Lysine riboswitch aptamer: a 182-nucleotide RNA sequence from Aminicella lysinilytica. From the family's description: Riboswitches are metabolite binding domains within certain messenger RNAs that serve as precision sensors for their corresponding targets. Allosteric rearrangement of mRNA structure is mediated by ligand binding, and this results in modulation of gene expression. This family includes riboswitches that sense lysine in a number of genes involved in lysine metabolism, including lysC. A search with the family's covariance model found it, with a score of 71 bits. Rfam links the family to the GO term lysine biosynthetic process. Taxonomically the source falls in Aminicella (Bacteria, Bacillati, Bacillota, Clostridia).
RNA sequence: UACCAAGAUAGAGGUCGCGGAAACGACAUCGCUGCAUGAGCCGGCAGGCUAUGAGGGCAGUUGACAGCAAUUCCGCCGAACUUUGACGGCAGGCGUGUCGCCAUAGUGGGACUACGGAGAAUAUCCGUAGGACUGUCUUCAGGCAAAGGAAGUUAUAUGCCUGAAGGGGUGCUGUCGGAGUA
Dot-bracket structure: ......(((((.....((((((..(.....(((((.(.................).)))))......)..))))))...(((.((.(((((....))))).)).)))((..(((((((.....)))))))..)).((((((((((............))))))))))....)))))......